[Rfam]
Nucleotides: 183
Stems, first nucleotide, its partner, number of pairs: 020069008078109005087098004110125005131172005143158006
Number, partner (000 for none) and nucleotide at each position: 001000u002000u003000a004000u005000u006000a007000u008000a009000a010000a011000a012000a013000g014000c015000g016000c017000c018000a019000g020069g021068a022067c023066u024065u025064a026063a027062g028000u029000a030000g031000a032000u033000u034000a035000c036000a037000c038000u039000u040000a041000a042000a043000u044000c045000a046000a047000a048000g049000a050000u051000u052000u053000g054000g055000a056000g057000u058000g059000u060000c061000a062027c063026u064025u065024a066023a067022g068021u069020u070000g071000a072000c073000g074000a075000g076000g077000a078109u079108g080107g081106g082105g083000a084000g085000u086000a087098u088097c089096g090095a091000a092000u093000c094000u095090u096089c097088g098087g099000c100000g101000g102000g103000u104000g105082c106081c107080c108079c109078a110125c111124g112123g113122u114121a115000u116000c117000g118000c119000a120000c121114u122113a123112c124111c125110g126000u127000u128000a129000a130000a131172g132171a133170u134169u135168g136000a137000u138000a139000a140000a141000a142000c143158c144157g145156a146155a147154a148153a149000g150000c151000a152000a153148u154147u155146u156145u157144c158143g159000a160000u161000a162000c163000a164000a165000u166000a167000u168135c169134a170133g171132u172131c173000a174000g175000g176000u177000g178000u179000u180000a181000a182000a183000a